[Rfam]
RNA sequence: AGAAACGUGGUUCGCGACCCUCCCACGCAAAAAAACUAAGGAGAG
Numbered sequence: 001a002g003a004a005a006c007g008u009g010g011u012u013c014g015c016g017a018c019c020c021u022c023c024c025a026c027g028c029a030a031a032a033a034a035a036c037u038a039a040g041g042a043g044a045g
Stems, first nucleotide, its partner, number of pairs: 006027005016037001

A member of the RNA family "PreQ1 (pre queuosine) riboswitch aptamer" from Oceanobacillus zhaokaii, 45 nucleotides long. From the family's description: This family is a bacterial riboswitch that binds to the metabolite preQ1, an intermediate in the biosynthesis of the modified nucleoside queuosine from GTP. One example of this riboswitch is located in the leader of the Bacillus subtilis ykvJKLM (queCDEF) operon which encodes four genes necessary for queuosine production. PreQ1 binding to the riboswitch aptamer is thought to induce premature transcription termination within the leader to down-regulate expression of these genes. The source organism's lineage runs through Bacteria, Bacillati, Bacillota, Bacillaceae and Oceanobacillus. It scores 51 bits against the family's covariance model.